[Rfam]
RNA sequence: AGCCGUGUGAUGAGCUCAAAGCGAAUUAUUCUUUCGCCUUUUACUAAAGAAUACCGUGUGCUCGUCAUUAUUAAUGGCAUACGCUAAUUUUUGGAGUGCUUGCCUUUUUGGGCAAGC
Dot-bracket structure: ..((((.((((((((.((........((((((((...........))))))))...)).))))))))......))))....................((((((........))))))
Background: This 117-nucleotide sequence from Hibiscus syriacus belongs to the Rfam family "U5 spliceosomal RNA". The base pairs follow the family's consensus structure, which is taken from published work. By type it is a spliceosomal small nuclear RNA. Lineage of the source: Eukaryota > Embryophyta > Euphyllophyta > Magnoliopsida > Hibiscus. About the family: U5 RNA is a component of both types of known spliceosome. The precise function of this molecule is unknown, though it is known that the 5' loop is required for splice site selection and p220 binding, and that both the 3' stem-loop and the Sm site are important for Sm protein binding and cap methylation.